[Rfam]
mir-44 microRNA precursor family: an 82-nucleotide RNA sequence from Mesorhabditis belari. Pairs were carried over by alignment from the consensus structure, which was predicted with RNAalifold. The match comes from Rfam's covariance-model search (71 bits). Its family is annotated with miRNA-mediated post-transcriptional gene silencing and RISC complex in the Gene Ontology. Lineage of the source: Eukaryota > Metazoa > Rhabditida > Mesorhabditinae > Mesorhabditis.
RNA sequence: CAAUUGCCCAUCUGGAUGUGCUCGUUAGUCGUAUGAAUGCUUGAAAGACUAUGACUAGAGACAUAUUCAGCUAGGCGAUGUC
Dot-bracket structure: ....((((...(((((((((.((...(((((((................)))))))...)))))))))))...)))).....
Numbered sequence: 001c002a003a004u005u006g007c008c009c010a011u012c013u014g015g016a017u018g019u020g021c022u023c024g025u026u027a028g029u030c031g032u033a034u035g036a037a038u039g040c041u042u043g044a045a046a047g048a049c050u051a052u053g054a055c056u057a058g059a060g061a062c063a064u065a066u067u068c069a070g071c072u073a074g075g076c077g078a079u080g081u082c
Stems, first nucleotide, its partner, number of pairs: 005077004012070009022061002027056007